[Rfam]
RNA sequence: CAGCAUAUUUCCAAGGGCUGUGGUUGACUAUAACCAUUGGUUCGCCAACUGAAUGCGAGAACAACCUGGAGAGCCUUUGCCAGCUCAGGUCAACAUAAUAGCUGCAGCUGCCACUCACUUUUCCUUUUCUA
Number, nucleotide and partner (000 for none) at each position: 001c000002a000003g000004c000005a000006u000007a000008u000009u000010u000011c039012c000013a000014a000015g000016g035017g034018c000019u032020g031021u030022g029023g000024u000025u000026g000027a000028c000029u022030a021031u020032a019033a000034c017035c016036a000037u000038u000039g011040g000041u000042u000043c000044g000045c000046c000047a000048a000049c000050u000051g000052a000053a000054u000055g000056c000057g000058a000059g000060a000061a000062c000063a000064a000065c000066c000067u000068g124069g123070a122071g121072a120073g119074c000075c000076u000077u000078u000079g000080c000081c000082a000083g111084c110085u000086c104087a103088g102089g000090u000091c000092a000093a000094c000095a000096u000097a000098a000099u000100a000101g000102c088103u087104g086105c000106a000107g000108c000109u000110g084111c083112c000113a000114c000115u000116c000117a000118c000119u073120u072121u071122u070123c069124c068125u000126u000127u000128u000129c000130u000131a000
A member of the RNA family "Small nucleolar RNA SNORA44" from Phyllostomus discolor, 131 nucleotides long. The source organism's lineage runs through Eukaryota, Eumetazoa, Craniata, Vertebrata and Phyllostomus. Gene Ontology terms of the family: RNA processing and nucleolus. It scores 111 bits against the family's covariance model. The family's consensus secondary structure was predicted with PFOLD. Clan: SNORA44 clan.